Record summary
Small nucleolar RNA SNORD89: a 112-nucleotide sequence from Acanthisitta chloris. From the family's description: snoRNA HBII-289 belongs to the family of C/D snoRNAs. It is the human orthologue of the mouse MBII-289 and has no identified RNA target.
[Rfam]
RNA sequence: GCUGAGGAGUGAUGACAAUAAAAGGCCGAAUUGCAGUGCCCUCAGCAGUUUGCACUCCUUGGGAGCACAAUGACAAAAGUCUUGCGAAGCGAAUCACUGGUCUGACCUUAGU
Dot-bracket structure: (((((((......(((........((......))((((.((((....((.(.(.(.....).).).))((.(.......).))..)).).)...)))).)))...)))))))
Rfam links the family to the GO terms RNA processing and nucleolus.